The family of this 53-nucleotide RNA sequence from Paracoccus yeei is "terC RNA". The source organism's lineage runs through Bacteria, Pseudomonadota, Alphaproteobacteria, Rhodobacterales and Paracoccus. Pairs were carried over by alignment from the consensus structure, which is taken from published work. It is annotated as a cis-regulatory element.
RNA sequence: UGCGCGGACCGGGCCCCUCUGGCGACAUGAUGUCGCGAUGUCGGACCGCAUCG
Numbered sequence: 001u002g003c004g005c006g007g008a009c010c011g012g013g014c015c016c017c018u019c020u021g022g023c024g025a026c027a028u029g030a031u032g033u034c035g036c037g038a039u040g041u042c043g044g045a046c047c048g049c050a051u052c053g
Stems, first nucleotide, its partner, number of pairs: 006047002009044004022036006